[Rfam]
The record is a 258-nucleotide part of an RNA from Ferroplasma acidarmanus, which matches "Archaeal large subunit ribosomal RNA" in Rfam.
RNA sequence: CAAUGUCUGAAGGGAAGGAGCCUUUAGUACGAGAGGAACGGGGGUUCGUGACCUCUAGUUUAUCGGUUGUCCGACAGGGCAGUUGCCGAGUAGCCACGUCAUACGCGAAUAAAAGCUGAAAGCAUCUAAGCUUGAAGUCGCCCCUGAAAAUAGACAUUGUUUGAGAUCACUCUUAAAAGAAGAGGUUGAUAGAGUCGGGAUAUAAGUACCAAGCUUUUGCGAGGUAUUAAGUCCACGACUACUAAUUGAUCGAAAAUC
Numbered sequence: 001c002a003a004u005g006u007c008u009g010a011a012g013g014g015a016a017g018g019a020g021c022c023u024u025u026a027g028u029a030c031g032a033g034a035g036g037a038a039c040g041g042g043g044g045u046u047c048g049u050g051a052c053c054u055c056u057a058g059u060u061u062a063u064c065g066g067u068u069g070u071c072c073g074a075c076a077g078g079g080c081a082g083u084u085g086c087c088g089a090g091u092a093g094c095c096a097c098g099u100c101a102u103a104c105g106c107g108a109a110u111a112a113a114a115g116c117u118g119a120a121a122g123c124a125u126c127u128a129a130g131c132u133u134g135a136a137g138u139c140g141c142c143c144c145u146g147a148a149a150a151u152a153g154a155c156a157u158u159g160u161u162u163g164a165g166a167u168c169a170c171u172c173u174u175a176a177a178a179g180a181a182g183a184g185g186u187u188g189a190u191a192g193a194g195u196c197g198g199g200a201u202a203u204a205a206g207u208a209c210c211a212a213g214c215u216u217u218u219g220c221g222a223g224g225u226a227u228u229a230a231g232u233c234c235a236c237g238a239c240u241a242c243u244a245a246u247u248g249a250u251c252g253a254a255a256a257u258c
Stems, first nucleotide, its partner, number of pairs: 001159008011145004017047003021043004048102005056096001058094001063089005068081005106140003113133005165251004170184004190244003193240005198234003206227005213220001
The organism belongs to Ferroplasma acidarmanus, within Archaea.